[Rfam]
c-di-AMP riboswitch aptamer (ydaO/yuaA leader): a 159-nucleotide RNA sequence from Streptomyces sp. SLBN-118.

RNA sequence: AAUUCGAACCCACCCACGUGUGGCAGGAGCGGGGGACCCAGGUAGUACGCCGAAUCCGCACUUUCCGGAACGGCUCGGGGUUAAGUCGCGCAACUGCGCGGCCGGGCAUCUCCAGCCCGAACCCGACAGCUCACCUCGCCGGCGCCGGAGAGGAAAGCG
Numbered sequence: 001a002a003u004u005c006g007a008a009c010c011c012a013c014c015c016a017c018g019u020g021u022g023g024c025a026g027g028a029g030c031g032g033g034g035g036a037c038c039c040a041g042g043u044a045g046u047a048c049g050c051c052g053a054a055u056c057c058g059c060a061c062u063u064u065c066c067g068g069a070a071c072g073g074c075u076c077g078g079g080g081u082u083a084a085g086u087c088g089c090g091c092a093a094c095u096g097c098g099c100g101g102c103c104g105g106g107c108a109u110c111u112c113c114a115g116c117c118c119g120a121a122c123c124c125g126a127c128a129g130c131u132c133a134c135c136u137c138g139c140c141g142g143c144g145c146c147g148g149a150g151a152g153g154a155a156a157g158c159g
Stems, first nucleotide, its partner, number of pairs: 003028003029139006039077001078124003086101004104118004